[Rfam]
RNA sequence: UUGGCGGUGAAGUCCCACUGGGUCACGCCGAGGUCGGUGAGGAUCUCGGAGCCGAAGUGGUCGCCGUCGGCCAGCACGCCGAGGACCGUCUCCUCGCCGUACUCGCCGGCGCCGAUCUUGUUCACCUUGCCGUGGGCGAUGAGGAAGACCCGGUCGGCGGGCUGGCCGCGGCUGACGAUGAUGUCGCCGGCCGCGAACUCCUGCUGCACGAACCGCUCGGCGAGGGAGCGCAGCGCGUUGACGUCGUCGAAGCCGCGCAGCGGCGGCAGCUCGCCGAGCUCCUGCGGGAUGACCUGGACCUGGGGUCCGGUGGAGACGAACGUGACCCGGCCGUCGCCGACGGCGUAGCUGAGGCGGCGGUUCACCCGAUAUGCCCCACCGCCCGCCUGCACCCAGGGCAGGAGCUUGAGCAGCCAGCGGGAGGUGAUCUCCUGCAUCUGCGGCACGGACUUCGUCGUCGUGGCCAGGUUGCGGGCGGCGGCGGUGCUGAGGCUGAGGCGGCGCUGCUCAU
Numbered sequence: 001u002u003g004g005c006g007g008u009g010a011a012g013u014c015c016c017a018c019u020g021g022g023u024c025a026c027g028c029c030g031a032g033g034u035c036g037g038u039g040a041g042g043a044u045c046u047c048g049g050a051g052c053c054g055a056a057g058u059g060g061u062c063g064c065c066g067u068c069g070g071c072c073a074g075c076a077c078g079c080c081g082a083g084g085a086c087c088g089u090c091u092c093c094u095c096g097c098c099g100u101a102c103u104c105g106c107c108g109g110c111g112c113c114g115a116u117c118u119u120g121u122u123c124a125c126c127u128u129g130c131c132g133u134g135g136g137c138g139a140u141g142a143g144g145a146a147g148a149c150c151c152g153g154u155c156g157g158c159g160g161g162c163u164g165g166c167c168g169c170g171g172c173u174g175a176c177g178a179u180g181a182u183g184u185c186g187c188c189g190g191c192c193g194c195g196a197a198c199u200c201c202u203g204c205u206g207c208a209c210g211a212a213c214c215g216c217u218c219g220g221c222g223a224g225g226g227a228g229c230g231c232a233g234c235g236c237g238u239u240g241a242c243g244u245c246g247u248c249g250a251a252g253c254c255g256c257g258c259a260g261c262g263g264c265g266g267c268a269g270c271u272c273g274c275c276g277a278g279c280u281c282c283u284g285c286g287g288g289a290u291g292a293c294c295u296g297g298a299c300c301u302g303g304g305g306u307c308c309g310g311u312g313g314a315g316a317c318g319a320a321c322g323u324g325a326c327c328c329g330g331c332c333g334u335c336g337c338c339g340a341c342g343g344c345g346u347a348g349c350u351g352a353g354g355c356g357g358c359g360g361u362u363c364a365c366c367c368g369a370u371a372u373g374c375c376c377c378a379c380c381g382c383c384c385g386c387c388u389g390c391a392c393c394c395a396g397g398g399c400a401g402g403a404g405c406u407u408g409a410g411c412a413g414c415c416a417g418c419g420g421g422a423g424g425u426g427a428u429c430u431c432c433u434g435c436a437u438c439u440g441c442g443g444c445a446c447g448g449a450c451u452u453c454g455u456c457g458u459c460g461u462g463g464c465c466a467g468g469u470u471g472c473g474g475g476c477g478g479c480g481g482c483g484g485u486g487c488u489g490a491g492g493c494u495g496a497g498g499c500g501g502c503g504c505u506g507c508u509c510a511u
Stems, first nucleotide, its partner, number of pairs: 006393004011388002014385001019330001021328002023325005029318001038316001043311003048308003052304002055301001057236002061232001065228001067226001068114004078106001080105004085100002088097002121224003125220002129216002132213002134209001136207003141202001143200001146199002151195002156192003160188003163181001167177002169174001237299003243293006254284002257281001259280003263274003332345004354382004359377002365373001394434005400428001403425001406421002410418001440479002443476001446473002449470001450468003454464002483508003487503001491499001
A member of the RNA family "Saccharopolyspora sRNA 350" from Dactylosporangium vinaceum, 511 nucleotides long. NCBI's taxonomy places the organism under Bacteria, Actinomycetota, Micromonosporales, Micromonosporaceae, Dactylosporangium. By type it is an antisense RNA.